This 167-nucleotide RNA sequence from Erysipelothrix sp. HDW6B belongs to the Rfam family "Lysine riboswitch aptamer". Lineage of the source: Bacteria > Erysipelotrichia > Erysipelotrichales > Erysipelotrichaceae > Erysipelothrix.
RNA sequence: AUUGAAUAUAGAGGUAGCGGUGCAUCAGAGUAUGAAGUCGAGUAGGUAUACGUUGACGCUUCAGAAAGGUAACCAUCGCCGAAUAGAUUAAUUAGACAUAAUUAACCUAUGGGGUUAGUGAAAAUAUCACUAUCACUCGAUCCAUUCGGAUUGGCACUAUGAAACUA
Dot-bracket structure: ......(((((.....((((((..(.......((((((.(................))))))).......)..))))))...((((.(((((((....))))))).))))((.(.((((((.....)))))).).))...(......)........)))))......